[Rfam]
RNA: Small nucleolar RNA SNORD97
Organism: Gopherus agassizii
RNA sequence: UUGCCCAAUGAUUAUAGCAAGACGCGUUAUUACGAGGACUAAUGCUGGACCUCUGCUUCUUAUCUCCUCUUUUUUUCUUCUUUGUCCCUUCUCCACUUUCACUUUAACCCUCAUUAUCCUUGAGUGUCCAGCGUCCUGUGAGCAAGAUUAUGAGAUAUGAGGGCAA
Dot-bracket structure: ((((((............................((((.(..............).))))....................................................................................................))))))
Numbered sequence: 001u002u003g004c005c006c007a008a009u010g011a012u013u014a015u016a017g018c019a020a021g022a023c024g025c026g027u028u029a030u031u032a033c034g035a036g037g038a039c040u041a042a043u044g045c046u047g048g049a050c051c052u053c054u055g056c057u058u059c060u061u062a063u064c065u066c067c068u069c070u071u072u073u074u075u076u077c078u079u080c081u082u083u084g085u086c087c088c089u090u091c092u093c094c095a096c097u098u099u100c101a102c103u104u105u106a107a108c109c110c111u112c113a114u115u116a117u118c119c120u121u122g123a124g125u126g127u128c129c130a131g132c133g134u135c136c137u138g139u140g141a142g143c144a145a146g147a148u149u150a151u152g153a154g155a156u157a158u159g160a161g162g163g164c165a166a
Stems, first nucleotide, its partner, number of pairs: 001166006035060004040055001